[Rfam]
Nucleotides: 130
Stems, first nucleotide, its partner, number of pairs: 001031003004027002007024002010022004097126003100122003104118001106117003
Number, partner (000 for none) and nucleotide at each position: 001031a002030a003029g004027a005026c006000g007024a008023u009000a010022u011021c012020g013019g014000u015000a016000g017000a018000u019013c020012c021011g022010a023008a024007u025000g026005g027004u028000a029003c030002u031001u032000u033000u034000a035000g036000c037000u038000u039000u040000a041000c042000a043000a044000a045000u046000a047000g048000c049000u050000a051000u052000a053000c054000a055000a056000u057000a058000c059000a060000u061000a062000u063000g064000u065000a066000u067000u068000u069000u070000c071000c072000a073000u074000u075000c076000a077000a078000g079000c080000u081000g082000a083000c084000u085000u086000u087000a088000c089000c090000u091000u092000a093000u094000u095000u096000u097126c098125u099124g100122c101121u102120c103000u104118g105000a106117u107116c108115c109000u110000g111000u112000u113000u114000g115108g116107g117106a118104c119000c120102g121101a122100g123000a124099c125098a126097g127000a128000a129000a130000a